[Rfam]
RNA sequence: AUUGGUUGAAAAUCACCCCCGGGCUUUGGCCACGGCUGCAGGCGAGAUUCAAUGCCCAGAGCCUCAGCUCACCACACACUGCCCCGUGUGUGGCGGUGAAACCCAGGCCCCAGCGGAU
Numbered sequence: 001a002u003u004g005g006u007u008g009a010a011a012a013u014c015a016c017c018c019c020c021g022g023g024c025u026u027u028g029g030c031c032a033c034g035g036c037u038g039c040a041g042g043c044g045a046g047a048u049u050c051a052a053u054g055c056c057c058a059g060a061g062c063c064u065c066a067g068c069u070c071a072c073c074a075c076a077c078a079c080u081g082c083c084c085c086g087u088g089u090g091u092g093g094c095g096g097u098g099a100a101a102c103c104c105a106g107g108c109c110c111c112a113g114c115g116g117a118u
Base pairs, nucleotide, nucleotide: 005053006052007051008050009049010048013045014044016042022037023036024035025034061108062107063106064105069099070098071097072096073095077090078089079088
Dot-bracket structure: ....((((((..((.(.....((((........))))....).))..)))))).......((((....(((((...(((........)))....))))).....))))..........
This 118-nucleotide sequence from Rhinopithecus roxellana belongs to the Rfam family "Small nucleolar RNA ACA64". Gene Ontology terms of the family: RNA processing and nucleolus. It scores 77 bits against the family's covariance model. The family's consensus secondary structure was predicted with WAR. The organism belongs to Rhinopithecus, within Eukaryota. Rfam 15.1 lists 9,537 matches to the family in 620 species. The literature on the family includes a 2006 paper in RNA by Schattner et al., "A computational screen for mammalian pseudouridylation guide H/ACA RNAs".